[Rfam]
RNA: Makes More Granules Regulator RNA (mmgR)
RNA sequence: CUCCGUAGCCCUCCUUGGGCGUUUCCUCCCUUGACUUGGGCCGCUGGCUUCCGGCGGCCCUUUUUUUUGCGCCGC
Numbered sequence: 001c002u003c004c005g006u007a008g009c010c011c012u013c014c015u016u017g018g019g020c021g022u023u024u025c026c027u028c029c030c031u032u033g034a035c036u037u038g039g040g041c042c043g044c045u046g047g048c049u050u051c052c053g054g055c056g057g058c059c060c061u062u063u064u065u066u067u068u069g070c071g072c073c074g075c
Stems, first nucleotide, its partner, number of pairs: 008020004038060009